[Rfam]
RNA: Pyrrolysine insertion sequence mttB
Organism: Desulforhopalus singaporensis
RNA sequence: UAGAGCGAUUCAAAACUUUUAGAUGCUCAGUCGGGCCAUGAGACAACCCUUACUGCACUCUUACCGGCGAUGGCAGGUGCCAACGUCAUAUAUGGUUUGG
Numbered sequence: 001u002a003g004a005g006c007g008a009u010u011c012a013a014a015a016c017u018u019u020u021a022g023a024u025g026c027u028c029a030g031u032c033g034g035g036c037c038a039u040g041a042g043a044c045a046a047c048c049c050u051u052a053c054u055g056c057a058c059u060c061u062u063a064c065c066g067g068c069g070a071u072g073g074c075a076g077g078u079g080c081c082a083a084c085g086u087c088a089u090a091u092a093u094g095g096u097u098u099g100g
Stems, first nucleotide, its partner, number of pairs: 025032001033062003077098001079096002